[Rfam]
The family of this 177-nucleotide RNA sequence from Oribacterium sp. oral taxon 078 is "Clostridiales-1 RNA". Rfam 15.1 lists 1,172 matches to the family in 137 species. A search with the family's covariance model found it, with a score of 74 bits.
RNA sequence: UUAUGCAGGGGAAAUGAAGCGGCGGGGCGCGCCCGUGCGGGCACGGGGGCGCGUCCCGACAUCCGGCGAGGCAACAGAUCUGAGGAAAAAAGCGCUCGAAAGGAGAGAAGAGCGCGAUUUCCGAAGAGCUGCCAGGAUUGCGGGAGCGCGGAAGCGCGGAGCAAUCCGAAAGCUUAU
Numbered sequence: 001u002u003a004u005g006c007a008g009g010g011g012a013a014a015u016g017a018a019g020c021g022g023c024g025g026g027g028c029g030c031g032c033c034c035g036u037g038c039g040g041g042c043a044c045g046g047g048g049g050c051g052c053g054u055c056c057c058g059a060c061a062u063c064c065g066g067c068g069a070g071g072c073a074a075c076a077g078a079u080c081u082g083a084g085g086a087a088a089a090a091a092g093c094g095c096u097c098g099a100a101a102g103g104a105g106a107g108a109a110g111a112g113c114g115c116g117a118u119u120u121c122c123g124a125a126g127a128g129c130u131g132c133c134a135g136g137a138u139u140g141c142g143g144g145a146g147c148g149c150g151g152a153a154g155c156g157c158g159g160a161g162c163a164a165u166c167c168g169a170a171a172g173c174u175u176a177u
Base pairs, nucleotide, nucleotide: 002176003175005173006172019062021060023058024057025056026055027054028053029052030051031050032049033046034045035044036043037042075131076130077129079127080126081125084122085121086120087119092115093114094113095112096111097110135167136166137165138164139163140162141161146157147156148155149154